Small nucleolar RNA SNORA56: a 129-nucleotide RNA from Sorex araneus. Taxonomically the source falls in Sorex (Eukaryota, Euteleostomi, Theria, Eutheria). The family's RNA type in Rfam is H/ACA-box small nucleolar RNA. From the family's description: ACA56 is a member of the H/ACA class of snoRNA that guide the sites of modification of uridines to pseudouridines. The family has 17 seed sequences and 153 matches in Rfam 15.1. Its Rfam clan is "SNORA56 clan". The pairing is the family consensus, mapped onto this sequence.
RNA sequence: CCGCAGAUGGUUAUCCCUUUCUUGUCUGGCAUGGGGGACUCUAGAGGGAGUCAAUCUGCAAAAACAAGUGGUAAGUUCUGCUUCUGCCUAGCUUGUGCCUAUUGGUGGCUUUAGACUUGCCAAACAUGG
Dot-bracket structure: ..((((((...........(((.((((........)))..).)))........)))))).........(((((((.(((......(((...(....(....).)..)))...)))))))))).......